Rfam assigns this 117-nucleotide RNA sequence from Mesorhizobium loti to the family "TPP riboswitch aptamer (THI element)". The base pairs follow the family's consensus structure, which is taken from published work. From the family's description: Vitamin B(1) in its active form thiamin pyrophosphate (TPP) is an essential coenzyme that is synthesised by coupling of pyrimidine and thiazole moieties in bacteria. It is one of the family's seed sequences.
Nucleotides: 117
Stems, first nucleotide, its partner, number of pairs: 007104004012065003017031005038060005072097004078091004
Number, partner (000 for none) and nucleotide at each position: 001000c002000g003000c004000a005000u006000u007104c008103a009102c010101c011000a012065g013064g014063g015000g016000a017031g018030u019029c020028c021027c022000g023000g024000c025000a026000a027021g028020g029019g030018g031017c032000u033000g034000a035000g036000a037000u038060a039059c040058u041057g042056c043000u044000g045000g046000c047000u048000u049000u050000c051000g052000c053000g054000g055000c056042g057041c058040a059039g060038u061000g062000a063014c064013c065012c066000g067000u068000u069000g070000a071000a072097c073096c074095u075094g076000a077000u078091c079090c080089a081088g082000u083000u084000c085000a086000u087000a088081c089080u090079g091078g092000c093000g094075u095074a096073g097072g098000g099000a100000c101010g102009g103008u104007g105000c106000a107000a108000g109000c110000g111000c112000u113000u114000u115000g116000c117000g